RNA sequence: CGCUGGGGACGACCCCCGGGGGGACGACCCCCGUGGGGACGACCCCG
Numbered sequence: 001c002g003c004u005g006g007g008g009a010c011g012a013c014c015c016c017c018g019g020g021g022g023g024a025c026g027a028c029c030c031c032c033g034u035g036g037g038g039a040c041g042a043c044c045c046c047g
Stems, first nucleotide, its partner, number of pairs: 001020001003018001005016004034047005